[Rfam]
RNA sequence: UUCUGCGUUUUCUUAACGCUCUCGUAUCUUAAGUGCCCUUGACGCUUAGCUUCUUUCGUCAAGCAUAUUAAAGGCGGUAAAACCGCUAAAGGAGAAACAAUG
Number, nucleotide and partner (000 for none) at each position: 001u000002u000003c000004u000005g000006c000007g000008u000009u000010u000011u000012c000013u000014u000015a000016a000017c000018g036019c035020u000021c033022u032023c000024g000025u000026a000027u000028c000029u000030u000031a000032a022033g021034u000035g019036c018037c000038c063039u062040u061041g060042a059043c058044g057045c000046u000047u000048a000049g000050c094051u093052u092053c091054u090055u089056u000057c044058g043059u042060c041061a040062a039063g038064c000065a000066u000067a000068u000069u000070a000071a000072a000073g087074g086075c085076g084077g083078u000079a000080a000081a000082a000083c077084c076085g075086c074087u073088a000089a055090a054091g053092g052093a051094g050095a000096a000097a000098c000099a000100a000101u000102g000

Shown here is a 102-nucleotide sequence from Streptococcus massiliensis, a member of the family "PreQ1-II (pre queuosine) riboswitch aptamer". preQ1-II riboswitch was first reported for Weinberg et al. 2007 it was recognised in Streptococcaceae and Lactococcus families in 5' untranslated regions of genes of a membrane protein classified as COG4708 or DUF988. Meyers et al. 2008 confirm that preQ1-II recognise the queuosine (Q) precursor pre-queuosine 1 (preQ1). Q is a hyper modified nucleoside present in some anticodons in tRNAs (Try, Asn, Asp and His). A reference for the family is Meyer et al. (2008), "Confirmation of a second natural preQ1 aptamer class in Streptococcaceae bacteria", RNA. Pairs were carried over by alignment from the consensus structure, which is taken from published work. Gene Ontology term of the family: queuosine biosynthetic process. It scores 73 bits against the family's covariance model.